[Rfam]
RNA sequence: GACGCGUAAGCGCCGCAGGCAGGAGCGGGGGACCCAAGGUAAGUGCCGAUGCCAGCAGUUGAGCUGGAAUCGGCUUGGGGUGAAGCCGCAUCGCACGUAGAGCAAGACGUGGGAUGCGGCCGGGCAGCCCAACCGGCCCGAACCCGACAGCUCACCUCGCAGGCGUCGGUGAGGGGAUCG
Numbered sequence: 001g002a003c004g005c006g007u008a009a010g011c012g013c014c015g016c017a018g019g020c021a022g023g024a025g026c027g028g029g030g031g032a033c034c035c036a037a038g039g040u041a042a043g044u045g046c047c048g049a050u051g052c053c054a055g056c057a058g059u060u061g062a063g064c065u066g067g068a069a070u071c072g073g074c075u076u077g078g079g080g081u082g083a084a085g086c087c088g089c090a091u092c093g094c095a096c097g098u099a100g101a102g103c104a105a106g107a108c109g110u111g112g113g114a115u116g117c118g119g120c121c122g123g124g125c126a127g128c129c130c131a132a133c134c135g136g137c138c139c140g141a142a143c144c145c146g147a148c149a150g151c152u153c154a155c156c157u158c159g160c161a162g163g164c165g166u167c168g169g170u171g172a173g174g175g176g177a178u179c180g
Stems, first nucleotide, its partner, number of pairs: 011165004025160006035077004078145003086119007122139004
RNA: c-di-AMP riboswitch aptamer (ydaO/yuaA leader)
Organism: Streptomyces pluripotens